Overview
The record is an 80-nucleotide RNA from Diceros bicornis, which matches "mir-296 microRNA precursor family" in Rfam. The family's consensus secondary structure was predicted with RNAalifold. Taxonomically the source falls in Diceros bicornis (Eukaryota, Bilateria, Chordata, Perissodactyla).

RNA sequence: AGGACUCUUCCGGAGGCCCCCCCGCCAAGUCCUGUUGUGUUUGAUUCAGAGAGUUGGGUGGAGGCUUUCCUGAGGGCUCU
Numbered sequence: 001a002g003g004a005c006u007c008u009u010c011c012g013g014a015g016g017c018c019c020c021c022c023c024g025c026c027a028a029g030u031c032c033u034g035u036u037g038u039g040u041u042u043g044a045u046u047c048a049g050a051g052a053g054u055u056g057g058g059u060g061g062a063g064g065c066u067u068u069c070c071u072g073a074g075g076g077c078u079c080u
Stems, first nucleotide, its partner, number of pairs: 006076005013069002015066004020061002022058002026056003030053001032051002035049003
Dot-bracket structure: .....(((((..((((((.((((..(((.(.((.(((.........))))).)))))).)).)))).))..)))))....